[Rfam]
This 60-nucleotide RNA from Salmo salar belongs to the Rfam family "mir-8/mir-141/mir-200 microRNA precursor family".
The family is grouped with related families in Rfam's "mir-8 microRNA precursor clan".
RNA sequence: CAUCUUACAAGGCAGUUUUGGAUGUCAUAACUCUCUCUAAUACUGCCUGGUAAUGAUGAU
Dot-bracket structure: ((((((((.(((((((.(((((.............))))).))))))).)))).))))..